[Rfam]
RNA sequence: AGGCGAGGGUCCGUCUGCAAUGAGGAUUUGCAUGUGACGACCGAUGCAGAGGGAGAUAGCAAAUCGCCUUAAGCAGCCAUAUUUAAGAGGUAGGAUGGCGAGCGUUAUGGAAACGUCGUGACUAUAUAUGGUUAGA
Numbered sequence: 001a002g003g004c005g006a007g008g009g010u011c012c013g014u015c016u017g018c019a020a021u022g023a024g025g026a027u028u029u030g031c032a033u034g035u036g037a038c039g040a041c042c043g044a045u046g047c048a049g050a051g052g053g054a055g056a057u058a059g060c061a062a063a064u065c066g067c068c069u070u071a072a073g074c075a076g077c078c079a080u081a082u083u084u085a086a087g088a089g090g091u092a093g094g095a096u097g098g099c100g101a102g103c104g105u106u107a108u109g110g111a112a113a114c115g116u117c118g119u120g121a122c123u124a125u126a127u128a129u130g131g132u133u134a135g136a
Stems, first nucleotide, its partner, number of pairs: 001016005017060002020057002064136002067110002070107003073099002076096001078094001080092004115132006

The family of this 136-nucleotide sequence from a Pseudomonadota bacterium is "Group II catalytic intron D1-D4-2". Group II introns are found in rRNA, tRNA and mRNA of organelles in fungi, plants and protists, and also in mRNA in bacteria. The literature on the family includes a 2001 paper in EMBO J by Chu et al., "Control of branch-site choice by a group II intron". Rfam 15.1 lists 1,231 matches to the family in 625 species.